[Rfam]
RNA sequence: GCUGUGCAAUGAUGAUACUUUGGCUCCCUCUACUGACACUUGUGAGGAAAGCAGCCAUCCGUUACCUAAUACUUCUGAGAGCACAGC
Numbered sequence: 001g002c003u004g005u006g007c008a009a010u011g012a013u014g015a016u017a018c019u020u021u022g023g024c025u026c027c028c029u030c031u032a033c034u035g036a037c038a039c040u041u042g043u044g045a046g047g048a049a050a051g052c053a054g055c056c057a058u059c060c061g062u063u064a065c066c067u068a069a070u071a072c073u074u075c076u077g078a079g080a081g082c083a084c085a086g087c
Base pairs, nucleotide, nucleotide: 001087002086003085004084005083006082
RNA: Small nucleolar RNA SNORD100
Organism: Pterocles gutturalis